[Rfam]
RNA sequence: CUAUAAUAACAAGCGCCAGGACUAUUCUACGGACGGAUAGGAAGAAUAGUUGACGAGGUCGGGGGUUAUCGAAUUAUUCGGCGGGUGCCUCCCAGCUGUGCAUCGCAGUUGUUGCUUUAUCUUUAAACCAUUAGGGUGACCUAGUGUACAAAGAGAUAAAGAAAGAUGUCU
Numbered sequence: 001c002u003a004u005a006a007u008a009a010c011a012a013g014c015g016c017c018a019g020g021a022c023u024a025u026u027c028u029a030c031g032g033a034c035g036g037a038u039a040g041g042a043a044g045a046a047u048a049g050u051u052g053a054c055g056a057g058g059u060c061g062g063g064g065g066u067u068a069u070c071g072a073a074u075u076a077u078u079c080g081g082c083g084g085g086u087g088c089c090u091c092c093c094a095g096c097u098g099u100g101c102a103u104c105g106c107a108g109u110u111g112u113u114g115c116u117u118u119a120u121c122u123u124u125a126a127a128c129c130a131u132u133a134g135g136g137u138g139a140c141c142u143a144g145u146g147u148a149c150a151a152a153g154a155g156a157u158a159a160a161g162a163a164a165g166a167u168g169u170c171u
Base pairs, nucleotide, nucleotide: 020051021050022049023048024047025046026045027044028042061092062091063090064089065088069081070080071079072078093111094110095109096108097107098106115161116160117159118158119157120156121155129146130145131144132143133142134141135140